[Rfam]
RNA sequence: UGUGCAAUUUCAUACGACGUCUGUAUAACCUCAAUAAUAUGGUUUGAGGGUCUCUACCAGGAACCGAUAAAUCCUGAUUACAAGCGAAAGUGUAUUCUUA
Numbered sequence: 001u002g003u004g005c006a007a008u009u010u011c012a013u014a015c016g017a018c019g020u021c022u023g024u025a026u027a028a029c030c031u032c033a034a035u036a037a038u039a040u041g042g043u044u045u046g047a048g049g050g051u052c053u054c055u056a057c058c059a060g061g062a063a064c065c066g067a068u069a070a071a072u073c074c075u076g077a078u079u080a081c082a083a084g085c086g087a088a089a090g091u092g093u094a095u096u097c098u099u100a
Stems, first nucleotide, its partner, number of pairs: 018086003022082004029049006058076005